[Rfam]
RNA sequence: GAGAUAUGAUGAGUAAUAUUUGGUCCGUGUUUCUGAUUUAACUGUGACUGAUUACCAUUUUAGCACACUCUGAUCUC
Numbered sequence: 001g002a003g004a005u006a007u008g009a010u011g012a013g014u015a016a017u018a019u020u021u022g023g024u025c026c027g028u029g030u031u032u033c034u035g036a037u038u039u040a041a042c043u044g045u046g047a048c049u050g051a052u053u054a055c056c057a058u059u060u061u062a063g064c065a066c067a068c069u070c071u072g073a074u075c076u077c
Base pairs, nucleotide, nucleotide: 001077002076003075004074
RNA: Small nucleolar RNA SNORD18